RNA sequence: AUCCAACGACAGGGGAGCGCUUCGGCGCUGAGAGUGCGGCACCCGCCGCAGACCCUUGAACCUGCUCCGGUUAGCACCGGCGAAGGGAGUCCGCAUGGCUACUGU
Numbered sequence: 001a002u003c004c005a006a007c008g009a010c011a012g013g014g015g016a017g018c019g020c021u022u023c024g025g026c027g028c029u030g031a032g033a034g035u036g037c038g039g040c041a042c043c044c045g046c047c048g049c050a051g052a053c054c055c056u057u058g059a060a061c062c063u064g065c066u067c068c069g070g071u072u073a074g075c076a077c078c079g080g081c082g083a084a085g086g087g088a089g090u091c092c093g094c095a096u097g098g099c100u101a102c103u104g105u
Stems, first nucleotide, its partner, number of pairs: 008091003011056004017028004035050005061086003067080004
Rfam assigns this 105-nucleotide RNA from Flexivirga caeni to the family "TPP riboswitch aptamer (THI element)". Pairs were carried over by alignment from the consensus structure, which is taken from published work.